[Rfam]
RNA sequence: AAGCUGAAUGUGAGAUUUGGAUGGAACCAAAUCUUCAGCUAUAAUACAAUGGCACAAGGUUUGGUUUCCUCCAAUAUCUCGUCUUCAACUG
Number, nucleotide and partner (000 for none) at each position: 001a000002a000003g000004c000005u087006g086007a085008a084009u000010g000011u081012g080013a079014g078015a000016u000017u074018u073019g072020g071021a070022u000023g068024g067025a066026a065027c064028c063029a062030a061031a000032u059033c058034u000035u000036c000037a000038g000039c000040u000041a000042u000043a000044a000045u000046a000047c000048a000049a000050u000051g000052g000053c000054a000055c000056a000057a000058g033059g032060u000061u030062u029063g028064g027065u026066u025067u024068c023069c000070u021071c020072c019073a018074a017075u000076a000077u000078c014079u013080c012081g011082u000083c000084u008085u007086c006087a005088a000089c000090u000091g000